RNA sequence: UUUUGGUCCUCCCGCAACGUGAAAUCGCGAACCCCGCCAGGCCCGGAAGGGAGCAACGGUAGUGAUGGAGUCGUGUGCCGGGAUGUGGCUGAGAGGG
Number, nucleotide and partner (000 for none) at each position: 001u000002u000003u000004u091005g090006g089007u088008c087009c000010u083011c082012c081013c080014g079015c075016a000017a074018c073019g072020u000021g000022a000023a000024a066025u065026c064027g063028c062029g000030a000031a000032c000033c000034c059035c058036g057037c000038c000039a000040g000041g000042c051043c050044c049045g000046g000047a000048a000049g044050g043051g042052a000053g000054c000055a000056a000057c036058g035059g034060u000061a000062g028063u027064g026065a025066u024067g000068g000069a000070g000071u000072c019073g018074u017075g015076u000077g000078c000079c014080g013081g012082g011083a010084u000085g000086u000087g008088g007089c006090u005091g004092a000093g000094a000095g000096g000097g000